Record summary: Shown here is a 127-nucleotide RNA sequence from Mus musculus, a member of the family "Small Cajal body specific RNA 4". The family is grouped with related families in Rfam's "SCARNA4 clan". scaRNAs are a specific class of small nuclear RNAs which localise to the Cajal bodies and guide the modification of RNA polymerase II transcribed spliceosomal RNAs U1, U2, U4, U5 and U12. The family has 24 seed sequences and 634 matches in Rfam 15.1. On this family, see Darzacq et al., EMBO J 2002: "Cajal body-specific small nuclear RNAs: a novel class of 2'-O-methylation and pseudouridylation guide RNAs". By type it is a small Cajal body RNA.
[Rfam]
RNA sequence: GCUGGAGGCUCGAGAAGGCUGAGUGUGAUGAAGCAGGACUUUGCUGAUCCGCUAACCUAGAGAAAGGGGUGGAGAGAGCAGCCCUUACUGGAGAAAGCCACAGGGCUGACUGUACUGCCCGACACUU
Numbered sequence: 001g002c003u004g005g006a007g008g009c010u011c012g013a014g015a016a017g018g019c020u021g022a023g024u025g026u027g028a029u030g031a032a033g034c035a036g037g038a039c040u041u042u043g044c045u046g047a048u049c050c051g052c053u054a055a056c057c058u059a060g061a062g063a064a065a066g067g068g069g070u071g072g073a074g075a076g077a078g079c080a081g082c083c084c085u086u087a088c089u090g091g092a093g094a095a096a097g098c099c100a101c102a103g104g105g106c107u108g109a110c111u112g113u114a115c116u117g118c119c120c121g122a123c124a125c126u127u
Base pairs, nucleotide, nucleotide: 002060003059004057005056007053008052009051017045018044019043021041022040023039024038026036067120068119069118070117077111078110079108080107081106082105083104084103085102089100090099091098